[Rfam]
The record is a 97-nucleotide RNA from Ruminiclostridium herbifermentans, which matches "Glycine riboswitch aptamer" in Rfam.
RNA sequence: GAAUCGUUCUCUGGAGAGUCCCGUUUGGGCGCCGAAGGUGCAAGGUAGAUAAUUAUUUAUUUACCAGUCUCUCAGGCAAAAGGACAGAGCUUAUAGC
Numbered sequence: 001g002a003a004u005c006g007u008u009c010u011c012u013g014g015a016g017a018g019u020c021c022c023g024u025u026u027g028g029g030c031g032c033c034g035a036a037g038g039u040g041c042a043a044g045g046u047a048g049a050u051a052a053u054u055a056u057u058u059a060u061u062u063a064c065c066a067g068u069c070u071c072u073c074a075g076g077c078a079a080a081a082g083g084a085c086a087g088a089g090c091u092u093a094u095a096g097c
Base pairs, nucleotide, nucleotide: 006092009089010088011087012086013085020029021028022027031077032076033075034073035072038071040069044064
Record summary:
The organism belongs to Ruminiclostridium, within Bacteria.